[Rfam]
The record is a 98-nucleotide RNA sequence, which matches "wcaG RNA" in Rfam.

RNA sequence: UAAGGUUUCUUGCUUUUCCUAAGAGCAAGUGGUGCGGAUGGAUUUAACUCCUGCCCUGUUUCUUGCUUCAGGAUAAAGAGCAAGUGGCGAGCCUGCAA
Numbered sequence: 001u002a003a004g005g006u007u008u009c010u011u012g013c014u015u016u017u018c019c020u021a022a023g024a025g026c027a028a029g030u031g032g033u034g035c036g037g038a039u040g041g042a043u044u045u046a047a048c049u050c051c052u053g054c055c056c057u058g059u060u061u062c063u064u065g066c067u068u069c070a071g072g073a074u075a076a077a078g079a080g081c082a083a084g085u086g087g088c089g090a091g092c093c094u095g096c097a098a
Stems, first nucleotide, its partner, number of pairs: 009029006016023001039053003055072004062084006
Overview
The family's RNA type in Rfam is cis-regulatory element. Rfam's curators put it in the seed alignment.